[Rfam]
RNA: Mammalian CPEB3 ribozyme
RNA sequence: ACUGCCGUCACGGCCAUAGCAGGAGCGUUUAUGUCACGGCCGUCGGAUUCUAACGAAUCGGCAAAUUCUGCU
Numbered sequence: 001a002c003u004g005c006c007g008u009c010a011c012g013g014c015c016a017u018a019g020c021a022g023g024a025g026c027g028u029u030u031a032u033g034u035c036a037c038g039g040c041c042g043u044c045g046g047a048u049u050c051u052a053a054c055g056a057a058u059c060g061g062c063a064a065a066u067u068c069u070g071c072u
Stems, first nucleotide, its partner, number of pairs: 010043006018072007025037001027035001044061001046059005